Shown here is a 50-nucleotide RNA sequence from Vibrio ordalii, a member of the family "L31-Gammaproteobacteria ribosomal protein leader".
RNA sequence: CGUGUGGUGUCCGGCUUCGAUUCGGAUAGCGACGCGGCCCAAUUUGAGGU
Numbered sequence: 001c002g003u004g005u006g007g008u009g010u011c012c013g014g015c016u017u018c019g020a021u022u023c024g025g026a027u028a029g030c031g032a033c034g035c036g037g038c039c040c041a042a043u044u045u046g047a048g049g050u
Base pairs, nucleotide, nucleotide: 001036002035003034004033005032007030008029011025012024013023014022016020
Annotation: The family's consensus secondary structure is taken from published work. The sequence is in the family's curated seed alignment.